RNA sequence: AAACUGAAGAGUUUGAUCAUGGCUCAGAUUGAACGCUGGCGGCAGGCCUAACACAUGCAAGUCGAGCGAGAAAGUACUUCGGUACGAGUAAAGCGGCGGACGGGUGAGUAACGCGUAGGAAUCUACCUGGUAGUGGGGGACAACAUGUGGAAACGCAUGCUAAUACCGCAUACGACCUAAGGGUGAAAGUGGGGGACCUUCGGGCCUCACGCUAUCGGAUGAGCCUGCGUAAGAUUAGCUAGUUGGUGAGGUAAGAGCUCACCAAGGCGACGAUCUUUAGCUGGUCUGAGAGGAUGAUCAGCCACACUGGGACUGAGACACGGCCCAGACUCCUACGGGAGGCAGCAGUGGGGAAUAUUGCGCAAUGGAGGAAACUCUGACGCAGCCAUGCCGCGUGUGUGAAGAAGGCCUUAGGGUUGUAAAGCACUUUCAAUUGGGAAGAAAGGUUGUACGUUAAUAGCGUGCAGCUGUGACAUUACCUUUAGAAGAAGCACCGGCUAACUCCGUGCCAGCAGCCGCGGUAAUACGGAGGGUGCGAGCGUUAAUCGGAAUUACUG
Numbered sequence: 001a002a003a004c005u006g007a008a009g010a011g012u013u014u015g016a017u018c019a020u021g022g023c024u025c026a027g028a029u030u031g032a033a034c035g036c037u038g039g040c041g042g043c044a045g046g047c048c049u050a051a052c053a054c055a056u057g058c059a060a061g062u063c064g065a066g067c068g069a070g071a072a073a074g075u076a077c078u079u080c081g082g083u084a085c086g087a088g089u090a091a092a093g094c095g096g097c098g099g100a101c102g103g104g105u106g107a108g109u110a111a112c113g114c115g116u117a118g119g120a121a122u123c124u125a126c127c128u129g130g131u132a133g134u135g136g137g138g139g140a141c142a143a144c145a146u147g148u149g150g151a152a153a154c155g156c157a158u159g160c161u162a163a164u165a166c167c168g169c170a171u172a173c174g175a176c177c178u179a180a181g182g183g184u185g186a187a188a189g190u191g192g193g194g195g196a197c198c199u200u201c202g203g204g205c206c207u208c209a210c211g212c213u214a215u216c217g218g219a220u221g222a223g224c225c226u227g228c229g230u231a232a233g234a235u236u237a238g239c240u241a242g243u244u245g246g247u248g249a250g251g252u253a254a255g256a257g258c259u260c261a262c263c264a265a266g267g268c269g270a271c272g273a274u275c276u277u278u279a280g281c282u283g284g285u286c287u288g289a290g291a292g293g294a295u296g297a298u299c300a301g302c303c304a305c306a307c308u309g310g311g312a313c314u315g316a317g318a319c320a321c322g323g324c325c326c327a328g329a330c331u332c333c334u335a336c337g338g339g340a341g342g343c344a345g346c347a348g349u350g351g352g353g354a355a356u357a358u359u360g361c362g363c364a365a366u367g368g369a370g371g372a373a374a375c376u377c378u379g380a381c382g383c384a385g386c387c388a389u390g391c392c393g394c395g396u397g398u399g400u401g402a403a404g405a406a407g408g409c410c411u412u413a414g415g416g417u418u419g420u421a422a423a424g425c426a427c428u429u430u431c432a433a434u435u436g437g438g439a440a441g442a443a444a445g446g447u448u449g450u451a452c453g454u455u456a457a458u459a460g461c462g463u464g465c466a467g468c469u470g471u472g473a474c475a476u477u478a479c480c481u482u483u484a485g486a487a488g489a490a491g492c493a494c495c496g497g498c499u500a501a502c503u504c505c506g507u508g509c510c511a512g513c514a515g516c517c518g519c520g521g522u523a524a525u526a527c528g529g530a531g532g533g534u535g536c537g538a539g540c541g542u543u544a545a546u547c548g549g550a551a552u553u554a555c556u557g
Stems, first nucleotide, its partner, number of pairs: 009025005027547004032543006039394006045387002047352001052350003056347003061097003066094002070089001074085004104305003113230007122222002127218007135169001137167002144159006175184003189210006231277003238268003243265008280302004284295004307328005330341004358384001360383003366379005397427004407418004431488001433483001436480002441474001446468008491536005502531005512519002

Bacterial small subunit ribosomal RNA: a 557-nucleotide part of an RNA from marine gamma proteobacterium HTCC2148. Rfam 15.1 lists 42,628 matches to the family in 10,626 species.